[Rfam]
RNA sequence: CCUUAAUUAGCUUAUUUUAAAGCUUUAGACUCUUAAUUUAAAAGAAAUUAGCUAAUACCUAUUAUUAAGGA
Numbered sequence: 001c002c003u004u005a006a007u008u009a010g011c012u013u014a015u016u017u018u019a020a021a022g023c024u025u026u027a028g029a030c031u032c033u034u035a036a037u038u039u040a041a042a043a044g045a046a047a048u049u050a051g052c053u054a055a056u057a058c059c060u061a062u063u064a065u066u067a068a069g070g071a
Base pairs, nucleotide, nucleotide: 001070002069003068004067005066006065007064010023011022012021013020025041026040027039028038029037047063049061050060051059
A member of the RNA family "tRNA" from Strongylocentrotus purpuratus, 71 nucleotides long. The sequence is in the family's curated seed alignment. Pairs were carried over by alignment from the consensus structure, which is taken from published work.